RNA: Ribosomal protein L10 leader
RNA sequence: UAAGUCUUGUUAUUACGACCGUAGACAGUAAGUGGCACAAGCCUUAAUUUCUUACCGAGGAAGUUUCCAUUAUUUAAUGAAGCUAUCUCUAUGUCUAAGGUGACAUAGAGAUUUUUUAAUAAAAAU
Numbered sequence: 001u002a003a004g005u006c007u008u009g010u011u012a013u014u015a016c017g018a019c020c021g022u023a024g025a026c027a028g029u030a031a032g033u034g035g036c037a038c039a040a041g042c043c044u045u046a047a048u049u050u051c052u053u054a055c056c057g058a059g060g061a062a063g064u065u066u067c068c069a070u071u072a073u074u075u076a077a078u079g080a081a082g083c084u085a086u087c088u089c090u091a092u093g094u095c096u097a098a099g100g101u102g103a104c105a106u107a108g109a110g111a112u113u114u115u116u117u118a119a120u121a122a123a124a125a126u
Stems, first nucleotide, its partner, number of pairs: 028055005034043003086111010
Dot-bracket structure: ...........................(((((.(((....))).......)))))..............................((((((((((......))))))))))...............